Background:
ArsR-gov region gene B: a 79-nucleotide sequence from Serratia fonticola. Rfam 15.1 lists 51 matches to the family in 31 species. Its family is annotated with antisense RNA metabolic process and gene silencing by RNA in the Gene Ontology. A search with the family's covariance model found it, with a score of 42 bits.
RNA sequence: UUAGUAAGAGAUGGCUCUACUCCGGCCAGAGCUAUUGGCCGAAACGUAAAAACCCGACCUCACCAGUCGGGUUUUUGCA
Dot-bracket structure: ....................(.(((((.........))))).)....(((((((((((.......)))))))))))...
Numbered sequence: 001u002u003a004g005u006a007a008g009a010g011a012u013g014g015c016u017c018u019a020c021u022c023c024g025g026c027c028a029g030a031g032c033u034a035u036u037g038g039c040c041g042a043a044a045c046g047u048a049a050a051a052a053c054c055c056g057a058c059c060u061c062a063c064c065a066g067u068c069g070g071g072u073u074u075u076u077g078c079a
Stems, first nucleotide, its partner, number of pairs: 021043001023041005048076011